RNA sequence: UGCAGAGUAGAAACCACGGCGUUAAGUGCCUCCUGAACAGGGAGUUGUCAGUGGGACGAAGAGGGGAUCCUCGCGGUCAUGGUUUCGCAUCCCGCUGCU
Numbered sequence: 001u002g003c004a005g006a007g008u009a010g011a012a013a014c015c016a017c018g019g020c021g022u023u024a025a026g027u028g029c030c031u032c033c034u035g036a037a038c039a040g041g042g043a044g045u046u047g048u049c050a051g052u053g054g055g056a057c058g059a060a061g062a063g064g065g066g067a068u069c070c071u072c073g074c075g076g077u078c079a080u081g082g083u084u085u086c087g088c089a090u091c092c093c094g095c096u097g098c099u
Base pairs, nucleotide, nucleotide: 002098003097004096005095010086011085012084013083014082015081016080018078019077020075021074022073026057027056029055030054031053033051034050035049036048040092041091042090044088061072062071063070064069
RNA: THF (Tetrahydrofolate) riboswitch aptamer